[Rfam]
Source information: Caenorhabditis snoRNA ceN59: a 140-nucleotide RNA from Caenorhabditis japonica. By type it is an H/ACA-box small nucleolar RNA. Its family is annotated with nucleolus and RNA processing in the Gene Ontology.
RNA sequence: CUCGGGCAGUUUGAGUUGAUCCGCUCUUUUGACAUGGAGCUUUGGGUCAAAUUACUGUCCGGAAAUGAUAGAGAAGAGCUUUUCAGAUUUCUACUGACGUUGCUAGAAGACGUUGGGAUUGAAGGGCUCUUCCCACAUUU
Numbered sequence: 001c002u003c004g005g006g007c008a009g010u011u012u013g014a015g016u017u018g019a020u021c022c023g024c025u026c027u028u029u030u031g032a033c034a035u036g037g038a039g040c041u042u043u044g045g046g047u048c049a050a051a052u053u054a055c056u057g058u059c060c061g062g063a064a065a066u067g068a069u070a071g072a073g074a075a076g077a078g079c080u081u082u083u084c085a086g087a088u089u090u091c092u093a094c095u096g097a098c099g100u101u102g103c104u105a106g107a108a109g110a111c112g113u114u115g116g117g118a119u120u121g122a123a124g125g126g127c128u129c130u131u132c133c134c135a136c137a138u139u140u
Stems, first nucleotide, its partner, number of pairs: 003061008016050007023040005073132002076130001077128005